[Rfam]
RNA: c-di-GMP-I riboswitch aptamer
RNA sequence: CUCAGAAAAGGGCAAACCUACUGAAAAGUACGGACGCAAAACCACAGACCUAAGGCGAACUCUGCUAUGGUGGCUGGGUUACGAAG
Numbered sequence: 001c002u003c004a005g006a007a008a009a010g011g012g013c014a015a016a017c018c019u020a021c022u023g024a025a026a027a028g029u030a031c032g033g034a035c036g037c038a039a040a041a042c043c044a045c046a047g048a049c050c051u052a053a054g055g056c057g058a059a060c061u062c063u064g065c066u067a068u069g070g071u072g073g074c075u076g077g078g079u080u081a082c083g084a085a086g
Stems, first nucleotide, its partner, number of pairs: 012037002017032001019030004040080004045076003048071003055065003